[Rfam]
RNA sequence: CGCGCCGCGUAAGCGGGCCGAUCGUCGACUCCCGCGGUGCCAGGGACCUUAGCCCGGGCCCGGAAAGCUGCGC
Numbered sequence: 001c002g003c004g005c006c007g008c009g010u011a012a013g014c015g016g017g018c019c020g021a022u023c024g025u026c027g028a029c030u031c032c033c034g035c036g037g038u039g040c041c042a043g044g045g046a047c048c049u050u051a052g053c054c055c056g057g058g059c060c061c062g063g064a065a066a067g068c069u070g071c072g073c
Stems, first nucleotide, its partner, number of pairs: 003039006043061003047057002
Dot-bracket structure: ..((((((.........................))))))...(((.((.......)).)))............
The record is a 73-nucleotide RNA from Mycobacterium cookii, which matches "hya RNA" in Rfam. The match comes from Rfam's covariance-model search (73 bits). The family's consensus secondary structure is taken from published work. Lineage of the source: Bacteria > Bacillati > Actinomycetota > Mycobacteriaceae > Mycobacterium.